[Rfam]
The record is a 129-nucleotide sequence from Dickeya dianthicola, which matches "EFASI RNA" in Rfam. Rfam classes the family as a small RNA. The source organism's lineage runs through Bacteria, Pseudomonadota, Enterobacterales, Pectobacteriaceae and Dickeya dianthicola.
RNA sequence: CUGGAUCGAUACCGAGGCAGGCGAUUUGCCUGGGGGUAUGACUGUGUGAACAGCGGUUGCACUGUGUGCAUCACCGAACCCCCGAUACCUCAACAAAACCCAAGCCCUCCGGCGCACAGGUAUCGUUCA
Dot-bracket structure: .((((.(((((((....(((((.....)))))((((.....((((....))))(((((((((...)))))..))))..))))....................................)))))))))))